ffh sRNA: a 52-nucleotide RNA from Palleronia aestuarii. On this family, see Meyer et al., BMC Genomics 2009: "Identification of candidate structured RNAs in the marine organism 'Candidatus Pelagibacter ubique'". The family's RNA type in Rfam is small RNA. The match comes from Rfam's covariance-model search (61 bits).

RNA sequence: UUGCGCCGGGAUCGCCUCCCGCCAGCGCGUUGCGCCCGCGGGAGCGAUCGUC
Numbered sequence: 001u002u003g004c005g006c007c008g009g010g011a012u013c014g015c016c017u018c019c020c021g022c023c024a025g026c027g028c029g030u031u032g033c034g035c036c037c038g039c040g041g042g043a044g045c046g047a048u049c050g051u052c
Base pairs, nucleotide, nucleotide: 016044017043018042019041020040021039022038025035026034027033028032